[Rfam]
Rfam assigns this 352-nucleotide RNA from Lachnospira multipara to the family "Bacterial RNase P class A". It is annotated as a ribozyme.
RNA sequence: UGAGUAAGACAGAUGAUCGCGGCUACAUUUCCGAAAGGAAGUAGGUGAGGAAAGUCCGGGCUUCAUAGGGCAGGAUGCCGGAUAACGUCCGGUGGAGGCGACUCCAAGGCUAGUGCAACAGAGAUAUACCGCCAUUUUAUGGUAAGGGUGGAAAGGUGGAGUAAGAGACCACCGCAGUCUUGGUAACAAGAUUGGCUAUGUAAACCCCAUUCGAAGCAAGACCGAGUAAAAACAAUACGUCUGCCCGGCGUGUUUUAGGUAGGUCGCUUGAGUCUAUUGGCAACAGUAGAACUAGAUAGAUGAUCAUCACGAAGCAAUUCGACAUAACCCGGCUUAUAGUUUUGCUCAUUUA
Dot-bracket structure: ((((((((((((((((((.((.((((.(((......))).)))).))....[[[.[[[[[((((...[[[[.((((((((((.....)))))(((((....)))).)((...(((((...........(((((((...)))))..)).......(((((.........)))))(((((((((....)))))))).)..)))..)))))))))))))...((((.....((((((...((((.]]]])))))))))).....)))).......(((((((....)))))))...........)))))))...................]]]]]]]].).))))))))))....